[Rfam]
RNA: Streptococcus sRNA 8
RNA sequence: AGAGCCUGCUCCUAUCUGGUUUGAGAACGUAGACAAACCUAUUUUAUUUCAAAAAUGUUUUACGCUGCUUUACAAAAAUAAUCAUUUUUAGCGAGCGAAGCGAGCCCAAACCGAAACUUUCCGAUGUGAUAAAAGUGGCUGAAACAAUAGUGUUUCAGCCACUCGGAAGAUUUGAAACUUUAGGUUCAAAUCUUAGGCAUGGAAUCCUAAAGGGAGUCGCUGCCGUCCGCUAUCACCUAAGGAAAGUUUCAAAAAGACUUUGUUUUCAAUCUGGAACCUGCUCCUAGCAGGUUUUUU
Numbered sequence: 001a002g003a004g005c006c007u008g009c010u011c012c013u014a015u016c017u018g019g020u021u022u023g024a025g026a027a028c029g030u031a032g033a034c035a036a037a038c039c040u041a042u043u044u045u046a047u048u049u050c051a052a053a054a055a056u057g058u059u060u061u062a063c064g065c066u067g068c069u070u071u072a073c074a075a076a077a078a079u080a081a082u083c084a085u086u087u088u089u090a091g092c093g094a095g096c097g098a099a100g101c102g103a104g105c106c107c108a109a110a111c112c113g114a115a116a117c118u119u120u121c122c123g124a125u126g127u128g129a130u131a132a133a134a135g136u137g138g139c140u141g142a143a144a145c146a147a148u149a150g151u152g153u154u155u156c157a158g159c160c161a162c163u164c165g166g167a168a169g170a171u172u173u174g175a176a177a178c179u180u181u182a183g184g185u186u187c188a189a190a191u192c193u194u195a196g197g198c199a200u201g202g203a204a205u206c207c208u209a210a211a212g213g214g215a216g217u218c219g220c221u222g223c224c225g226u227c228c229g230c231u232a233u234c235a236c237c238u239a240a241g242g243a244a245a246g247u248u249u250c251a252a253a254a255a256g257a258c259u260u261u262g263u264u265u266u267c268a269a270u271c272u273g274g275a276a277c278c279u280g281c282u283c284c285u286a287g288c289a290g291g292u293u294u295u296u297u
Base pairs, nucleotide, nucleotide: 003293004292005291006290007289008288009287010286014282016280018278019277020276021275022274024272025271026270028128029127030126031125035120036119040116042114043113047109048108136268137267138266142265143264144263145262146261147260149259150258151257158230159229161226168193169192170191171190172189173188174187175186176185178184179183196224197223198222199221202218203217205215206214207213208212241250242249243248